[Rfam]
RNA sequence: UAUCUUGACAUUUAUUUAAUGUUGCUAUAUAAUAGCUAUGUACAUUUUGUGUACUAUAGCAAUAAAAUCACCCUGUAAUAGGUGUAUUGGACCCGAGGGCAGUACUCGGCGCCUCCACCAUAUUUUUAAUUUAUAUGGGGGCGAAUAAGGAUCGACAUGCAUAGUAAAGAUGGUAGUUUUGCUCGGUUAGACACCACCGCUAAGAGUUCAUAAUUUAAAUGCAAACGAUAAUUUUGCUGCUGAAGACAAUGUUGCAAUAGCUGCUUAAUUUAAGCACUAUAACUUCAUUGCUAUAAGCACGGUUCAGGGAACGCCGGGUAACAGAAGUUCCCCAAA
Numbered sequence: 001u002a003u004c005u006u007g008a009c010a011u012u013u014a015u016u017u018a019a020u021g022u023u024g025c026u027a028u029a030u031a032a033u034a035g036c037u038a039u040g041u042a043c044a045u046u047u048u049g050u051g052u053a054c055u056a057u058a059g060c061a062a063u064a065a066a067a068u069c070a071c072c073c074u075g076u077a078a079u080a081g082g083u084g085u086a087u088u089g090g091a092c093c094c095g096a097g098g099g100c101a102g103u104a105c106u107c108g109g110c111g112c113c114u115c116c117a118c119c120a121u122a123u124u125u126u127u128a129a130u131u132u133a134u135a136u137g138g139g140g141g142c143g144a145a146u147a148a149g150g151a152u153c154g155a156c157a158u159g160c161a162u163a164g165u166a167a168a169g170a171u172g173g174u175a176g177u178u179u180u181g182c183u184c185g186g187u188u189a190g191a192c193a194c195c196a197c198c199g200c201u202a203a204g205a206g207u208u209c210a211u212a213a214u215u216u217a218a219a220u221g222c223a224a225a226c227g228a229u230a231a232u233u234u235u236g237c238u239g240c241u242g243a244a245g246a247c248a249a250u251g252u253u254g255c256a257a258u259a260g261c262u263g264c265u266u267a268a269u270u271u272a273a274g275c276a277c278u279a280u281a282a283c284u285u286c287a288u289u290g291c292u293a294u295a296a297g298c299a300c301g302g303u304u305c306a307g308g309g310a311a312c313g314c315c316g317g318g319u320a321a322c323a324g325a326a327g328u329u330c331c332c333c334a335a336a
Stems, first nucleotide, its partner, number of pairs: 040054005058183005068176001070174003074170001083161003088157002093109005110143007184199004190209002193207002300316004307332005
RNA: Alphaproteobacteria transfer-messenger RNA